[Rfam]
RNA sequence: GCAGUGUCAAUCUAGCGGAAGGGGUGUACGAACAGGGCACAUGUUGUCAAUGUAUUCACCUCGGGAAGGUCUGAGAUAAGGUCAUUGAACGUUCUAGACGGACGGUACCGUAAUGGUACGUACGGGAACCAGAAAUAGCUUUACGUUCUUCAAAAUGCCGGGGACGCUUUCUCGAAAAGCAGAGGCGACUGGAAACGGAAAGAUGGAAACUCGUACGGCCCGCUUUUUUAGUACAAUCCGCAAGCCUGGUAGUUCAUACCUGGAACUCAAUUCAGACUAAUCUGAUGCUGC
Numbered sequence: 001g002c003a004g005u006g007u008c009a010a011u012c013u014a015g016c017g018g019a020a021g022g023g024g025u026g027u028a029c030g031a032a033c034a035g036g037g038c039a040c041a042u043g044u045u046g047u048c049a050a051u052g053u054a055u056u057c058a059c060c061u062c063g064g065g066a067a068g069g070u071c072u073g074a075g076a077u078a079a080g081g082u083c084a085u086u087g088a089a090c091g092u093u094c095u096a097g098a099c100g101g102a103c104g105g106u107a108c109c110g111u112a113a114u115g116g117u118a119c120g121u122a123c124g125g126g127a128a129c130c131a132g133a134a135a136u137a138g139c140u141u142u143a144c145g146u147u148c149u150u151c152a153a154a155a156u157g158c159c160g161g162g163g164a165c166g167c168u169u170u171c172u173c174g175a176a177a178a179g180c181a182g183a184g185g186c187g188a189c190u191g192g193a194a195a196c197g198g199a200a201a202g203a204u205g206g207a208a209a210c211u212c213g214u215a216c217g218g219c220c221c222g223c224u225u226u227u228u229u230a231g232u233a234c235a236a237u238c239c240g241c242a243a244g245c246c247u248g249g250u251a252g253u254u255c256a257u258a259c260c261u262g263g264a265a266c267u268c269a270a271u272u273c274a275g276a277c278u279a280a281u282c283u284g285a286u287g288c289u290g291c
Base pairs, nucleotide, nucleotide: 001291002290003289004288007285008284009283012244013243015241016240017239018238021062022061023060024059025058036048037047038046039045071275072274073273074272075271080220081219082218083217090104091103092102093101094100105119106118107117108116109115120216121215122214123213124212125211126210140202141201142200245263246262248260249259250258251257

This 291-nucleotide RNA from Harpegnathos saltator belongs to the Rfam family "Nuclear RNase P".
A search with the family's covariance model found it, with a score of 142 bits.
The family's consensus secondary structure is taken from published work.